[Rfam]
transfer-messenger RNA: a 354-nucleotide RNA from Psychrobacillus psychrotolerans. The match comes from Rfam's covariance-model search (188 bits). Bacterial tmRNA, also known as 10Sa RNA or SsrA, is named for its dual tRNA and mRNA-like properties. The literature on the family includes a 1996 paper in RNA by Williams and Bartel, "Phylogenetic analysis of tmRNA secondary structure". NCBI's taxonomy places the organism under Bacteria, Bacillati, Bacillota, Caryophanales, Psychrobacillus. The family's consensus secondary structure is taken from published work.
RNA sequence: GGGGACGUUAUGGAUUCGACAGGGAUAGUCUGAGCUUGAGUUGCGCGUCGGAGGCUCGGCUCCGUAAAAACGGAACUUAUAACAACAGGCAAAACAAACAACAACUUAGCAUUCGCAGCGUAAGCUCGGAUCUGCUUUAUCUACCCAUCGCCCAUGUGGCUAGGUAAAGCUCAACUUUAGUGGGAUACGGUAGCCAGUGCAACUUGAGCUGUCUGCAAGAGAUUUCCAAGUUAGCGUACACAACGCCCGCUUGUCGGCAUAGUGCUACGCGAAACCUAAAUAGGCAAGAUACACGCGUAGAAGCUUAAGUGUUAGAGUUUCUGGACGCGGGUUCAAAUCCCGCCGUCUCCAUAU
Number, nucleotide and partner (000 for none) at each position: 001g350002g349003g348004g347005a346006c345007g344008u000009u000010a000011u000012g000013g000014a000015u000016u000017c000018g000019a000020c323021a322022g321023g320024g319025a318026u317027a000028g000029u314030c000031u000032g312033a000034g310035c309036u308037u307038g306039a305040g304041u303042u302043g000044c297045g296046c295047g294048u293049c064050g063051g062052a061053g060054g000055c000056u073057c072058g071059g000060c053061u052062c051063c050064g049065u000066a000067a000068a000069a000070a000071c058072g057073g056074a000075a000076c000077u000078u000079a000080u000081a000082a000083c000084a000085a000086c000087a000088g000089g000090c000091a000092a000093a000094a000095c000096a000097a000098a000099c000100a000101a000102c000103a000104a000105c000106u000107u000108a000109g000110c000111a131112u130113u129114c128115g127116c000117a126118g125119c124120g000121u000122a000123a000124g119125c118126u117127c115128g114129g113130a112131u111132c000133u000134g170135c169136u168137u167138u166139a165140u164141c163142u162143a161144c000145c159146c158147a157148u156149c000150g000151c184152c183153c182154a181155u180156g148157u147158g146159g145160c000161u143162a142163g141164g140165u139166a138167a137168a136169g135170c134171u000172c000173a000174a000175c000176u000177u000178u000179a000180g155181u154182g153183g152184g151185a000186u000187a000188c000189g000190g216191u215192a214193g213194c000195c211196a210197g209198u208199g000200c000201a000202a232203c000204u230205u229206g000207a000208g198209c197210u196211g195212u000213c193214u192215g191216c190217a000218a000219g000220a000221g000222a000223u000224u000225u000226c000227c000228a000229a205230g204231u000232u202233a000234g270235c269236g268237u267238a266239c000240a000241c000242a000243a000244c000245g258246c257247c256248c000249g000250c288251u287252u286253g000254u282255c000256g247257g246258c245259a000260u000261a000262g000263u000264g000265c000266u238267a237268c236269g235270c234271g000272a000273a000274a000275c000276c000277u000278a000279a000280a000281u000282a254283g000284g000285c000286a252287a251288g250289a000290u000291a000292c000293a048294c047295g046296c045297g044298u000299a000300g000301a000302a042303g041304c040305u039306u038307a037308a036309g035310u034311g000312u032313u000314a029315g000316a000317g026318u025319u024320u023321c022322u021323g020324g000325a000326c000327g343328c342329g341330g340331g339332u000333u000334c000335a000336a000337a000338u000339c331340c330341c329342g328343c327344c007345g006346u005347c004348u003349c002350c001351a000352u000353a000354u000